[Rfam]
RNA sequence: AGGAGAUGCUGAGGGAAUCUGAGAAGGUGCACAAGGUUUGUGUCCAUACAGUCCACACCUUGUGCUACUCAGGUCUGCUCGUGCCUUCCA
Numbered sequence: 001a002g003g004a005g006a007u008g009c010u011g012a013g014g015g016a017a018u019c020u021g022a023g024a025a026g027g028u029g030c031a032c033a034a035g036g037u038u039u040g041u042g043u044c045c046a047u048a049c050a051g052u053c054c055a056c057a058c059c060u061u062g063u064g065c066u067a068c069u070c071a072g073g074u075c076u077g078c079u080c081g082u083g084c085c086u087u088c089c090a
Stems, first nucleotide, its partner, number of pairs: 002089004008084001010081004015076001017074007026066006034060004038051005
The record is a 90-nucleotide RNA sequence from Carlito syrichta, which matches "mir-3200 microRNA precursor family" in Rfam.
The family has 4 seed sequences and 66 matches in Rfam 15.1.
Pairs were carried over by alignment from the consensus structure, which was predicted with RNAalifold.
The organism belongs to Carlito, within Eukaryota.
The match comes from Rfam's covariance-model search (80 bits).